Annotation: Shown here is a 70-nucleotide RNA sequence from Ralstonia pickettii, a member of the family "int-alpA RNA".

RNA sequence: UCCCUGCCUACGCCGACGGGCGGAAAAGCCGGAGACCUUCACCGGCCUGGCAGGGGCACCCCUAUGAAGG
Numbered sequence: 001u002c003c004c005u006g007c008c009u010a011c012g013c014c015g016a017c018g019g020g021c022g023g024a025a026a027a028g029c030c031g032g033a034g035a036c037c038u039u040c041a042c043c044g045g046c047c048u049g050g051c052a053g054g055g056g057c058a059c060c061c062c063u064a065u066g067a068a069g070g
Base pairs, nucleotide, nucleotide: 001056002055003054004053005052006051007050008049011022012021013020014019028046029045030044031043032042036070037069038068039067040066041065
Dot-bracket structure: ((((((((..((((....)))).....(((((...[[[[[[)))))..))))))))........]]]]]]

About this RNA:
Taxonomically the source falls in Ralstonia pickettii (Bacteria, Betaproteobacteria, Burkholderiaceae, Ralstonia). Rfam classes the family as a small RNA.